[Rfam]
RNA sequence: GCCCCGUUCAUUGGGGAGUAGCCACCCUCUGUUGCAGAGGGGUCUUCGUCAACACACUUGGCCAGCAGGCCAUGGCGGAGACAGCGUUUUAGAAAAAACGCCCAGCAAGACCAACGGCAUCAUUGCCUCAAUUGUGGCCGGGGGGCGAUGCGUGCUGUUUUGCGUUUUGCGGCCCUUGGAC
Numbered sequence: 001g002c003c004c005c006g007u008u009c010a011u012u013g014g015g016g017a018g019u020a021g022c023c024a025c026c027c028u029c030u031g032u033u034g035c036a037g038a039g040g041g042g043u044c045u046u047c048g049u050c051a052a053c054a055c056a057c058u059u060g061g062c063c064a065g066c067a068g069g070c071c072a073u074g075g076c077g078g079a080g081a082c083a084g085c086g087u088u089u090u091a092g093a094a095a096a097a098a099c100g101c102c103c104a105g106c107a108a109g110a111c112c113a114a115c116g117g118c119a120u121c122a123u124u125g126c127c128u129c130a131a132u133u134g135u136g137g138c139c140g141g142g143g144g145g146c147g148a149u150g151c152g153u154g155c156u157g158u159u160u161u162g163c164g165u166u167u168u169g170c171g172g173c174c175c176u177u178g179g180a181c
Stems, first nucleotide, its partner, number of pairs: 026040003042082010059072005086181004
A member of the RNA family "Manganese Mn2+ riboswitch aptamer (yybP-ykoY)", 181 nucleotides long. Its family is annotated with manganese ion binding in the Gene Ontology.